[Rfam]
RNA sequence: CACGCGACGAUGCCGAAUCCCCCAACGCCACGGCAAGGCCACGGUGCGACGGGGAGCCGGGGACCCAGUUACCUGGGGUGAAUCCGAAAGGUAGGGCUAUCCCGGCCCGAACCCGUCAGCUAACCCGGUAGGCGUACUAGGGGAGGAGCU
Numbered sequence: 001c002a003c004g005c006g007a008c009g010a011u012g013c014c015g016a017a018u019c020c021c022c023c024a025a026c027g028c029c030a031c032g033g034c035a036a037g038g039c040c041a042c043g044g045u046g047c048g049a050c051g052g053g054g055a056g057c058c059g060g061g062g063a064c065c066c067a068g069u070u071a072c073c074u075g076g077g078g079u080g081a082a083u084c085c086g087a088a089a090g091g092u093a094g095g096g097c098u099a100u101c102c103c104g105g106c107c108c109g110a111a112c113c114c115g116u117c118a119g120c121u122a123a124c125c126c127g128g129u130a131g132g133c134g135u136a137c138u139a140g141g142g143g144a145g146g147a148g149c150u
Stems, first nucleotide, its partner, number of pairs: 011134004018055005056129006066075002076114003084091002094108004
Overview: The family of this 150-nucleotide RNA from Streptosporangiaceae bacterium NEAU-GS5 is "c-di-AMP riboswitch aptamer (ydaO/yuaA leader)". The organism belongs to Streptosporangiaceae, within Bacteria. Its family is annotated with cyclic-di-AMP binding and regulation of gene expression in the Gene Ontology.